[Rfam]
RNA sequence: AGGAGCAACCGCAGUGGUGGUGGCCAGCUCUGGAGCCCUGGAUUCAGCUCCCGCAGUAACUACAGAGCUCUCCGUCUGCAGGGCCUGGAGGCCCCGGGGCAGG
Numbered sequence: 001a002g003g004a005g006c007a008a009c010c011g012c013a014g015u016g017g018u019g020g021u022g023g024c025c026a027g028c029u030c031u032g033g034a035g036c037c038c039u040g041g042a043u044u045c046a047g048c049u050c051c052c053g054c055a056g057u058a059a060c061u062a063c064a065g066a067g068c069u070c071u072c073c074g075u076c077u078g079c080a081g082g083g084c085c086u087g088g089a090g091g092c093c094c095c096g097g098g099g100c101a102g103g
Stems, first nucleotide, its partner, number of pairs: 002095002005092002009087001011085001012083001016076005022071002026069007034061001038056003
The family of this 103-nucleotide sequence from Canis lupus is "mir-8834 microRNA precursor family". The match comes from Rfam's covariance-model search (64 bits).